[Rfam]
RNA sequence: CUCAGCUCAAAAACAUGAGCUAUUGAUGAAAAAUUUAGUCCAAGUCUUCUUAUAGUUUCCUUUCGAUAUAUUUCGUUAUUCAACUCCGGCAGUCACUUUUUCUUUAUAUUCCAUUUUAUAGCCUCGGUUUUCGACUCUUUAAUAAUUAACGAGGUAUAUAUGUCUACAAAAAUGACUGGUUCAGUAAAAUGGUUUGACGAAUCAAAAGGCUUUGGCUUUAUUUCACCUGACAAUGGUGGCGCAGAUCUGUUUGUGCACUUUAAGUCUAUCAUUUCAGAGGGUUUUAAAACCCUGACUGAUGGCCAACAAGUAUCGUUUACGGUAGAAGCUGGUGCCAAAGGCCCGCAGGCGACAAACGUCAUCGCUGCAUAAAUGACCAUUUUUAAUAUCUUCUUGCAUCACAUUGGCUUAGAUGUGAUGUAGGA
Numbered sequence: 001c002u003c004a005g006c007u008c009a010a011a012a013a014c015a016u017g018a019g020c021u022a023u024u025g026a027u028g029a030a031a032a033a034u035u036u037a038g039u040c041c042a043a044g045u046c047u048u049c050u051u052a053u054a055g056u057u058u059c060c061u062u063u064c065g066a067u068a069u070a071u072u073u074c075g076u077u078a079u080u081c082a083a084c085u086c087c088g089g090c091a092g093u094c095a096c097u098u099u100u101u102c103u104u105u106a107u108a109u110u111c112c113a114u115u116u117u118a119u120a121g122c123c124u125c126g127g128u129u130u131u132c133g134a135c136u137c138u139u140u141a142a143u144a145a146u147u148a149a150c151g152a153g154g155u156a157u158a159u160a161u162g163u164c165u166a167c168a169a170a171a172a173u174g175a176c177u178g179g180u181u182c183a184g185u186a187a188a189a190u191g192g193u194u195u196g197a198c199g200a201a202u203c204a205a206a207a208g209g210c211u212u213u214g215g216c217u218u219u220a221u222u223u224c225a226c227c228u229g230a231c232a233a234u235g236g237u238g239g240c241g242c243a244g245a246u247c248u249g250u251u252u253g254u255g256c257a258c259u260u261u262a263a264g265u266c267u268a269u270c271a272u273u274u275c276a277g278a279g280g281g282u283u284u285u286a287a288a289a290c291c292c293u294g295a296c297u298g299a300u301g302g303c304c305a306a307c308a309a310g311u312a313u314c315g316u317u318u319a320c321g322g323u324a325g326a327a328g329c330u331g332g333u334g335c336c337a338a339a340g341g342c343c344c345g346c347a348g349g350c351g352a353c354a355a356a357c358g359u360c361a362u363c364g365c366u367g368c369a370u371a372a373a374u375g376a377c378c379a380u381u382u383u384u385a386a387u388a389u390c391u392u393c394u395u396g397c398a399u400c401a402c403a404u405u406g407g408c409u410u411a412g413a414u415g416u417g418a419u420g421u422a423g424g425a
Base pairs, nucleotide, nucleotide: 004021005020006019007018008017009016025227027225028224029223030222037219038218043217044216045215046214048209049208050207051206057204058201060199063197064196065195066194068193069192074162075161076160078159079158087151088150091147092146093145164179165178166177231325233323234322236320244252245251255313257311258310259309260308267305269302270301274295275294276293277292281290282289330345331344332343334342335341336340346367348366349365350364351363352362371389372387374385375384376383395422396421397420398419399418400417401416402415403414404413405412
RNA: cspA thermoregulator